[Rfam]
RNA: 7SK RNA
Organism: Sciurus carolinensis
RNA sequence: AGAUGUGAGGACGAUCUGGCUUUGACAUCUGUCACCCCAUUGAUCUCCAGGGUUGAUUCAGCUGAUCUGGCUAGCUGGGCGGGUGUCCCCUUCCUCCCUCACCGCUCCAUGAGCGUCCCUCCCCAAGAGGAUGACCUUCUCAGAUAGAGAAGGAACGUUGUUCGGUCAAGGGUAUACGAGUAGCUGAGGUCCCCUGCUAGAACCUCCAAACAAGCUCUCAAGGUCCAUUUGUAGAAGAACGUAGGGUAGUCAAGCUUCCAAGACUCCUGACACAUCCAAAUGAGGUGCUGCACGUGGCAGUCUGCCUUUCAAA
Numbered sequence: 001a002g003a004u005g006u007g008a009g010g011a012c013g014a015u016c017u018g019g020c021u022u023u024g025a026c027a028u029c030u031g032u033c034a035c036c037c038c039a040u041u042g043a044u045c046u047c048c049a050g051g052g053u054u055g056a057u058u059c060a061g062c063u064g065a066u067c068u069g070g071c072u073a074g075c076u077g078g079g080c081g082g083g084u085g086u087c088c089c090c091u092u093c094c095u096c097c098c099u100c101a102c103c104g105c106u107c108c109a110u111g112a113g114c115g116u117c118c119c120u121c122c123c124c125a126a127g128a129g130g131a132u133g134a135c136c137u138u139c140u141c142a143g144a145u146a147g148a149g150a151a152g153g154a155a156c157g158u159u160g161u162u163c164g165g166u167c168a169a170g171g172g173u174a175u176a177c178g179a180g181u182a183g184c185u186g187a188g189g190u191c192c193c194c195u196g197c198u199a200g201a202a203c204c205u206c207c208a209a210a211c212a213a214g215c216u217c218u219c220a221a222g223g224u225c226c227a228u229u230u231g232u233a234g235a236a237g238a239a240c241g242u243a244g245g246g247u248a249g250u251c252a253a254g255c256u257u258c259c260a261a262g263a264c265u266c267c268u269g270a271c272a273c274a275u276c277c278a279a280a281u282g283a284g285g286u287g288c289u290g291c292a293c294g295u296g297g298c299a300g301u302c303u304g305c306c307u308u309u310c311a312a313a
Base pairs, nucleotide, nucleotide: 002107003106005102006101007100008099009098010097013093014092018090019089024087025086026085027084028083029082030081031080032079033078035074037070038069039068042067043066044065045064047061116153117152119149120148121147123143129140130139131138183255184254185253190248192246193245194244195243196242197241204237205236207234210232211231212230213229214228282308283307284306285305286304287301288300289299290298291297